[Rfam]
RNA sequence: GGACACGUGGGUGAGCGGCUGAAACCACCUCCCUGCUAAGGAGGCAAGGGCCUCACGGUCCUUCGAGGGUUCGAAUCCCUCCGUGUCCG
Numbered sequence: 001g002g003a004c005a006c007g008u009g010g011g012u013g014a015g016c017g018g019c020u021g022a023a024a025c026c027a028c029c030u031c032c033c034u035g036c037u038a039a040g041g042a043g044g045c046a047a048g049g050g051c052c053u054c055a056c057g058g059u060c061c062u063u064c065g066a067g068g069g070u071u072c073g074a075a076u077c078c079c080u081c082c083g084u085g086u087c088c089g
Stems, first nucleotide, its partner, number of pairs: 001088007010026003028044005065081005
RNA: tRNA